Shown here is a 92-nucleotide RNA sequence from Aquarana catesbeiana, a member of the family "mir-16 microRNA precursor family". A reference for the family is Partin et al. (2020), "Cryo-EM Structures of Human Drosha and DGCR8 in Complex with Primary MicroRNA", Mol Cell. Pairs were carried over by alignment from the consensus structure, which was predicted with PFOLD. Clan: mir-15 clan. NCBI's taxonomy places the organism under Eukaryota, Opisthokonta, Teleostomi, Ranidae, Aquarana. Its family is annotated with miRNA-mediated post-transcriptional gene silencing and RISC complex in the Gene Ontology.
[Rfam]
RNA sequence: GUAGGACUUUAGCGGCACUUAGAUAAAGGUCACAAAUUCAUAAAUGGAUUAUGGAUCUGUGACCUUUUAUCUAAGUGCCGCUAAAGUCCUAC
Numbered sequence: 001g002u003a004g005g006a007c008u009u010u011a012g013c014g015g016c017a018c019u020u021a022g023a024u025a026a027a028g029g030u031c032a033c034a035a036a037u038u039c040a041u042a043a044a045u046g047g048a049u050u051a052u053g054g055a056u057c058u059g060u061g062a063c064c065u066u067u068u069a070u071c072u073a074a075g076u077g078c079c080g081c082u083a084a085a086g087u088c089c090u091a092c
Base pairs, nucleotide, nucleotide: 001092002091003090005088006087007086010085011082012081013080014079015078016077017076018075022071023070024069025068026067027066028065029064